The record is a 68-nucleotide sequence from Danionella cerebrum, which matches "mir-29 microRNA precursor family" in Rfam.
The literature on the family includes a 2001 paper in Cell by Ambros, "microRNAs: tiny regulators with great potential".
About the family: This family represents the microRNA (miRNA) precursors mir-29.
Rfam 15.1 lists 3,328 matches to the family in 787 species.
Its family is annotated with gene silencing by miRNA and RISC complex in the Gene Ontology.
A search with the family's covariance model found it, with a score of 65 bits.
Nucleotides: 068
Stems, first nucleotide, its partner, number of pairs: 001068004005063005011057004016052006025045004
Number, partner (000 for none) and nucleotide at each position: 001068g002067g003066a004065a005063g006062c007061u008060g009059a010000c011057u012056u013055c014054a015000g016052a017051u018050g019049g020048u021047g022000c023000c024000a025045u026044a027043g028042a029000g030000u031000a032000c033000u034000u035000u036000c037000u038000g039000g040000c041000a042028u043027c044026u045025a046000g047021c048020a049019c050018c051017a052016u053000u054014u055013g056012a057011a058000a059009u060008c061007a062006g063005u064000g065004u066003u067002c068001c